Rfam assigns this 149-nucleotide RNA sequence from Durio zibethinus to the family "MIR396 microRNA precursor family".
Rfam links the family to the GO terms miRNA-mediated post-transcriptional gene silencing and RISC complex.
The family has 26 seed sequences and 744 matches in Rfam 15.1.

RNA sequence: GGUCAUGCUUUUCCACAGCUUUCUUGAACUUUCUUUGUGUUCUUACUCCAUCUCAAAAAAAAAAAAAAAAAAGGCAAAAGCAACAUAAUAUAUAGAGCUAUAUAUAGUGCACCAAGGGAGCUCAAGAAAGCUGUGGGAGAACAUGAUGG
Numbered sequence: 001g002g003u004c005a006u007g008c009u010u011u012u013c014c015a016c017a018g019c020u021u022u023c024u025u026g027a028a029c030u031u032u033c034u035u036u037g038u039g040u041u042c043u044u045a046c047u048c049c050a051u052c053u054c055a056a057a058a059a060a061a062a063a064a065a066a067a068a069a070a071a072a073g074g075c076a077a078a079a080g081c082a083a084c085a086u087a088a089u090a091u092a093u094a095g096a097g098c099u100a101u102a103u104a105u106a107g108u109g110c111a112c113c114a115a116g117g118g119a120g121c122u123c124a125a126g127a128a129a130g131c132u133g134u135g136g137g138a139g140a141a142c143a144u145g146a147u148g149g
Stems, first nucleotide, its partner, number of pairs: 003146005013136003017132006024125004029120007